[Rfam]
RNA sequence: UGUUGCAGUUAAAACGCUCGUAGUUGAAUUCCUGCUGUGCGAAACAAGACAACUAUCUUAGUUGCAUCUUGGUUCUAACAGCAUUGUGCCGUUCAUCAAGCAAUUGGUGUGUCGGUAACGUUACUUUGAGAAAACUAGAGUGCUUCAAGCAGGCUAACGCCGUGAAUACUCCAGCAUGGAAUAACAAUUAAGAACUUUGGUUCUUUUUGUUGGUUCAAGGACCAGAGUGAUGAUUAAUAGGGACAGUUGGGGGCAUUCGUAUUUGGUAGCUAGAGGUGAAAUUCUUAGAUUUGCCAAAGACGAACUACUGCGAAAGCAUCUGCCAAGGAUGUUUUCAUUAAUCAAGAACGAAAGUUAGGGGAUCGAAGACGAUCAGAUACCGUCGUAGUCUUAACCAUAAACGAUGCCGACUAGAGAUUGGAAGACGUCAACAAUCGACUCUUUCAGCACCUUAUGAGAAAUCAAAGUCUUUGGGUUCUGGGGGGAGUAUGGUCGCAAGUCUGAAACUUAAAGGAAU
Numbered sequence: 001u002g003u004u005g006c007a008g009u010u011a012a013a014a015c016g017c018u019c020g021u022a023g024u025u026g027a028a029u030u031c032c033u034g035c036u037g038u039g040c041g042a043a044a045c046a047a048g049a050c051a052a053c054u055a056u057c058u059u060a061g062u063u064g065c066a067u068c069u070u071g072g073u074u075c076u077a078a079c080a081g082c083a084u085u086g087u088g089c090c091g092u093u094c095a096u097c098a099a100g101c102a103a104u105u106g107g108u109g110u111g112u113c114g115g116u117a118a119c120g121u122u123a124c125u126u127u128g129a130g131a132a133a134a135c136u137a138g139a140g141u142g143c144u145u146c147a148a149g150c151a152g153g154c155u156a157a158c159g160c161c162g163u164g165a166a167u168a169c170u171c172c173a174g175c176a177u178g179g180a181a182u183a184a185c186a187a188u189u190a191a192g193a194a195c196u197u198u199g200g201u202u203c204u205u206u207u208u209g210u211u212g213g214u215u216c217a218a219g220g221a222c223c224a225g226a227g228u229g230a231u232g233a234u235u236a237a238u239a240g241g242g243a244c245a246g247u248u249g250g251g252g253g254c255a256u257u258c259g260u261a262u263u264u265g266g267u268a269g270c271u272a273g274a275g276g277u278g279a280a281a282u283u284c285u286u287a288g289a290u291u292u293g294c295c296a297a298a299g300a301c302g303a304a305c306u307a308c309u310g311c312g313a314a315a316g317c318a319u320c321u322g323c324c325a326a327g328g329a330u331g332u333u334u335u336c337a338u339u340a341a342u343c344a345a346g347a348a349c350g351a352a353a354g355u356u357a358g359g360g361g362a363u364c365g366a367a368g369a370c371g372a373u374c375a376g377a378u379a380c381c382g383u384c385g386u387a388g389u390c391u392u393a394a395c396c397a398u399a400a401a402c403g404a405u406g407c408c409g410a411c412u413a414g415a416g417a418u419u420g421g422a423a424g425a426c427g428u429c430a431a432c433a434a435u436c437g438a439c440u441c442u443u444u445c446a447g448c449a450c451c452u453u454a455u456g457a458g459a460a461a462u463c464a465a466a467g468u469c470u471u472u473g474g475g476u477u478c479u480g481g482g483g484g485g486a487g488u489a490u491g492g493u494c495g496c497a498a499g500u501c502u503g504a505a506a507c508u509u510a511a512a513g514g515a516a517u
Stems, first nucleotide, its partner, number of pairs: 006480003014477001016349001018347002023342003240336004244331002247328002252324004258302002262298008273284003310317002354395006364388001368384004406476003409469003413452002418447008427439003456463002482509003491502002494499001